RNA: mir-5856 microRNA precursor family
Organism: Brugia malayi
RNA sequence: UAGAAGCAACUCUGUGUGUAGCAUUCGGUAUACACUCUCAUACCGAAUGCUACACACGGAGUUGCUUCUU
Numbered sequence: 001u002a003g004a005a006g007c008a009a010c011u012c013u014g015u016g017u018g019u020a021g022c023a024u025u026c027g028g029u030a031u032a033c034a035c036u037c038u039c040a041u042a043c044c045g046a047a048u049g050c051u052a053c054a055c056a057c058g059g060a061g062u063u064g065c066u067u068c069u070u
Base pairs, nucleotide, nucleotide: 002069003068004067005066006065007064008063009062010061011060012059013058014057015056016055017054018053019052020051021050022049023048024047025046026045027044028043029042030041031040